Annotation:
Rfam assigns this 83-nucleotide sequence from Flavonifractor sp. An10 to the family "tRNA". Lineage of the source: Bacteria > Bacillota > Clostridia > Eubacteriales > Flavonifractor.
RNA sequence: GCGGGCGUGGUGGAAUUGGCAGACUCGAUGGAUUUAGGUUCCAUUACCUUAGUGGUGUGCGGGUUCGAGUCCCGCCGCCCGCA
Numbered sequence: 001g002c003g004g005g006c007g008u009g010g011u012g013g014a015a016u017u018g019g020c021a022g023a024c025u026c027g028a029u030g031g032a033u034u035u036a037g038g039u040u041c042c043a044u045u046a047c048c049u050u051a052g053u054g055g056u057g058u059g060c061g062g063g064u065u066c067g068a069g070u071c072c073c074g075c076c077g078c079c080c081g082c083a
Stems, first nucleotide, its partner, number of pairs: 001082007010026001012024001028044005059075005